Background:
The record is a 233-nucleotide RNA sequence from Carboxydocella thermautotrophica, which matches "T-box leader" in Rfam.

RNA sequence: GUGAAAGCGAGGAUGGGGACAAGUAGUCUCUCUUACCUCCUUCCAGAGAGGCGGGGUCACCGGCUGCAAGCCCUGCUAAGGAGAGGAGCAGAUGAAACCACCCCGGAGUGCCGUUGCCAAAACCGGUUGGUGAGUAGUGACGGACGGCGCCCGCCGUUAUCGGGAUGGAGAGGUUUUGCCAGCUGGCAAAACAAUUUGGGUGGAACCGCGGAAGCAGAGCUUUCGUCCCAUAG
Number, nucleotide and partner (000 for none) at each position: 001g000002u000003g000004a000005a000006a000007g109008c108009g000010a000011g000012g000013a000014u000015g104016g103017g102018g101019a000020c000021a000022a000023g000024u000025a000026g093027u092028c091029u090030c000031u088032c000033u000034u000035a000036c000037c000038u000039c081040c080041u079042u000043c000044c000045a000046g000047a000048g000049a000050g077051g076052c075053g074054g073055g072056g071057u070058c000059a000060c000061c000062g000063g000064c000065u000066g000067c000068a000069a000070g057071c056072c055073c054074u053075g052076c051077u050078a000079a041080g040081g039082a000083g000084a000085g000086g000087a000088g031089c000090a029091g028092a027093u026094g000095a000096a000097a000098c000099c000100a000101c018102c017103c016104c015105g000106g000107a000108g008109u007110g000111c143112c142113g141114u140115u139116g138117c137118c000119a000120a000121a000122a000123c000124c000125g000126g000127u000128u000129g000130g000131u000132g000133a000134g000135u000136a000137g117138u116139g115140a114141c113142g112143g111144a000145c156146g155147g154148c000149g000150c000151c000152c000153g000154c147155c146156g145157u000158u000159a000160u000161c000162g000163g000164g000165a000166u000167g000168g000169a000170g000171a000172g000173g192174u191175u190176u189177u188178g187179c186180c000181a000182g000183c000184u000185g000186g179187c178188a177189a176190a175191a174192c173193a000194a000195u000196u000197u230198g229199g228200g227201u000202g000203g000204a000205a000206c000207c000208g226209c225210g224211g223212a222213a221214g220215c219216a000217g000218a000219g215220c214221u213222u212223u211224c210225g209226u208227c200228c199229c198230a197231u000232a000233g000
NCBI's taxonomy places the organism under Bacteria, Bacillati, Clostridia, Carboxydocella, Carboxydocella thermautotrophica. Uncharged tRNA acts as the effector for transcription antitermination of genes in the T-box leader family. T-boxes are found upstream of many aminoacyl-tRNA synthetase genes and some amino acid biosynthetic genes usually in Gram-positive bacteria. The anticodon of a specific tRNA base pairs to a specifier sequence within the T-box motif, and the NCCA acceptor tail of the tRNA base pairs to a conserved bulge in the T-box antiterminator hairpin.